[Rfam]
RNA sequence: GGCUGGUUUUUGUGCAGUGGUGUUUACAACUAAUUGAUCACAACCACAGAUUUCUCUGUUCCUUUUUCAUUCCACUGCUUCACUUGACCAGUCUUAA
Numbered sequence: 001g002g003c004u005g006g007u008u009u010u011u012g013u014g015c016a017g018u019g020g021u022g023u024u025u026a027c028a029a030c031u032a033a034u035u036g037a038u039c040a041c042a043a044c045c046a047c048a049g050a051u052u053u054c055u056c057u058g059u060u061c062c063u064u065u066u067u068c069a070u071u072c073c074a075c076u077g078c079u080u081c082a083c084u085u086g087a088c089c090a091g092u093c094u095u096a097a
Stems, first nucleotide, its partner, number of pairs: 001093008014081001016076005028060003033055001
Background:
Rfam assigns this 97-nucleotide RNA sequence from Piliocolobus tephrosceles to the family "Y RNA". The source organism's lineage runs through Eukaryota, Chordata, Teleostomi, Colobinae and Piliocolobus. Y RNAs are components of the Ro ribonucleoprotein particle (Ro RNP), in association with Ro60 and La proteins. The Y RNAs and Ro60 and La proteins are well conserved, but the function of the Ro RNP is not known. In humans the RNA component can be one of four small RNAs -- hY1, hY3, hY4 and hY5. These small RNAs are predicted to fold into a conserved secondary structure containing three stem structures. The base pairs follow the family's consensus structure, which is taken from published work.